This 84-nucleotide RNA sequence from Sodalis sp. TME1 belongs to the Rfam family "sRNA-Xcc1". The family's RNA type in Rfam is small RNA.

RNA sequence: GGUCGGGUGUGUGGCUAAUAAAAUACCCGCAAGGGGAAUAUGCCCGCCAUCUUCUACUGGUUUUGAGCACCCGACCGCCCUCUC
Numbered sequence: 001g002g003u004c005g006g007g008u009g010u011g012u013g014g015c016u017a018a019u020a021a022a023a024u025a026c027c028c029g030c031a032a033g034g035g036g037a038a039u040a041u042g043c044c045c046g047c048c049a050u051c052u053u054c055u056a057c058u059g060g061u062u063u064u065g066a067g068c069a070c071c072c073g074a075c076c077g078c079c080c081u082c083u084c
Stems, first nucleotide, its partner, number of pairs: 001076009013044003016040002026035003046061004
Pairs were carried over by alignment from the consensus structure, which was predicted with RNAalifold. It scores 79 bits against the family's covariance model.